[Rfam]
Bacillaceae-1 RNA: a 67-nucleotide sequence from Halobacillus halophilus. The base pairs follow the family's consensus structure, which is taken from published work. By type it is a small RNA. The organism belongs to Halobacillus halophilus, within Bacteria.
RNA sequence: UAAGAAGGAGGAUCGACUAAAGUCGCCACGUCCUGUGGCAACGUCGAUCGACCCUACAUCCUGCAGG
Number, nucleotide and partner (000 for none) at each position: 001u000002a000003a000004g000005a000006a000007g000008g000009a000010g000011g049012a048013u047014c046015g045016a044017c043018u000019a000020a000021a000022g000023u000024c000025g039026c038027c037028a036029c035030g000031u000032c000033c000034u000035g029036u028037g027038g026039c025040a000041a000042c000043g017044u016045c015046g014047a013048u012049c011050g000051a000052c000053c067054c066055u065056a000057c063058a000059u000060c000061c000062u000063g057064c000065a055066g054067g053